[Rfam]
RNA: Small nucleolar RNA R12
Organism: Populus deltoides
RNA sequence: AUGGCAGAUGAAAUGAAUAAGAAGGAUUCCCGUUCAUAAUUCAUUGUGAUAUCAUAACCAGCCACUUCCGAUCCAU
Numbered sequence: 001a002u003g004g005c006a007g008a009u010g011a012a013a014u015g016a017a018u019a020a021g022a023a024g025g026a027u028u029c030c031c032g033u034u035c036a037u038a039a040u041u042c043a044u045u046g047u048g049a050u051a052u053c054a055u056a057a058c059c060a061g062c063c064a065c066u067u068c069c070g071a072u073c074c075a076u
Stems, first nucleotide, its partner, number of pairs: 001076004